[Rfam]
RNA sequence: CCACUCUGAAAAGAAGCCACUGUACGCCGGUGGCUCGCCCAAGGUGAAAGUUGUGCCCGCGUGGCACGGCGAAGCUCUCAGGCCGCAACGACAGAGGGGGA
Dot-bracket structure: ((.(((((......((((((.........)))))).(((.(..(.(...(((((((.......)))))))....).))..)))........))))).))..

Description: This 101-nucleotide sequence from Cryobacterium psychrophilum belongs to the Rfam family "Glycine riboswitch aptamer". Lineage of the source: Bacteria > Bacillati > Micrococcales > Microbacteriaceae > Cryobacterium. Gene Ontology term of the family: glycine biosynthetic process.